[Rfam]
RNA sequence: GCGAAUCUUUUUGCGGUCUGGGCUUGCUGUACAUUACUCAUAGCCGGAAGCCCUUACCCCAAAAAGCAUUCG
Numbered sequence: 001g002c003g004a005a006u007c008u009u010u011u012u013g014c015g016g017u018c019u020g021g022g023c024u025u026g027c028u029g030u031a032c033a034u035u036a037c038u039c040a041u042a043g044c045c046g047g048a049a050g051c052c053c054u055u056a057c058c059c060c061a062a063a064a065a066g067c068a069u070u071c072g
Stems, first nucleotide, its partner, number of pairs: 007066007015058003020053004025048001027047002